[Rfam]
RNA sequence: CUUCACCGAGCCGAGCCACAACGGCCGCUCCUCCGGCCGGCCCUGCCCAUAGGUGGCGAUCAGCGCCUGCGCCUC
Numbered sequence: 001c002u003u004c005a006c007c008g009a010g011c012c013g014a015g016c017c018a019c020a021a022c023g024g025c026c027g028c029u030c031c032u033c034c035g036g037c038c039g040g041c042c043c044u045g046c047c048c049a050u051a052g053g054u055g056g057c058g059a060u061c062a063g064c065g066c067c068u069g070c071g072c073c074u075c
Stems, first nucleotide, its partner, number of pairs: 015025003031071001033069001038065002044059001047056003
Description:
ASpks TB sRNA: a 75-nucleotide RNA from Streptomyces sporangiiformans.